Overview:
Rfam assigns this 135-nucleotide sequence from Rhynochetos jubatus to the family "Small nucleolar RNA SNORA14". Gene Ontology terms of the family: RNA processing and nucleolus. ACA14 is a member of the H/ACA class of snoRNA that guide the sites of modification of uridines to pseudouridines. The base pairs follow the family's consensus structure, which was predicted with RNAfold.
Nucleotides: 135
Stems, first nucleotide, its partner, number of pairs: 003058004009049002016045006023038003062135003070128001073125002084115004089110002092107002098103001
Number, partner (000 for none) and nucleotide at each position: 001000c002000a003058g004057c005056a006055u007000u008000c009049u010048u011000a012000a013000c014000c015000c016045u017044c018043c019042u020041g021040g022000c023038a024037g025036c026000u027000c028000u029000g030000u031000u032000c033000u034000u035000a036025g037024c038023u039000u040021c041020c042019a043018g044017g045016a046000u047000a048010a049009g050000a051000a052000u053000g054000a055006a056005u057004g058003c059000c060000a061000g062135a063134g064133a065000a066000a067000a068000c069000g070128g071000u072000u073125g074124a075000u076000u077000a078000a079000u080000c081000c082000a083000a084115a085114a086113u087112g088000u089110a090109g091000a092107g093106c094000u095000c096000u097000u098103c099000u100000c101000c102000c103098g104000u105000g106093g107092c108000u109090c110089u111000u112087c113086a114085u115084u116000a117000u118000u119000u120000c121000a122000c123000a124074u125073c126000u127000u128070c129000a130000a131000c132000a133064u134063u135062u